[Rfam]
RNA sequence: GCCGAGCUUAGUUGCGUGAGCUUGUAACCUAAGUGGGGGCAUUAAGGUUAAUGGACGGUUGGCUCGGUUCACGAGGUCGAAUCCAUUGCGGCUAAACUCUGGCCUGCCCGUUCCAAGCUUGGAGUUGAUCCACGGGAAUUGAGCGAAGGUUUGGUUCGCUUGGUUCUUAGAGUGGAGGGCAAAGCGUGAGGCUGGUUUCACAGAGCAGCGAAAACCUCCCGCUCUCGGCAGUGGAAGGAUUACAGGCCGGUGCUUGCUUGGAUUCAAUAUGGCCCCGUUGGCUGACCCAAUUGGACUUAAUCCUUU
Dot-bracket structure: ((((((((((......)))))))....(((....))))))...((((.(.(.(..((.((((.(.(..(.(((.(((((((((((..((((.((....((((((((.((.(((((.(((.(((((.((.(((.(.(((((((((....))))))))).).))).))(....).(((((......(((....(((......)))....)))....))))).))))).)))..)))))))....)))))))))).)))).))))))).....)))).))).).).).).))).))..).).).)))).

Shown here is a 306-nucleotide RNA from Hibiscus syriacus, a member of the family "Plant signal recognition particle RNA". Clan: SRP clan. NCBI's taxonomy places the organism under Eukaryota, Magnoliopsida, Gunneridae, Malvoideae, Hibiscus. The family's RNA type in Rfam is non-coding RNA gene.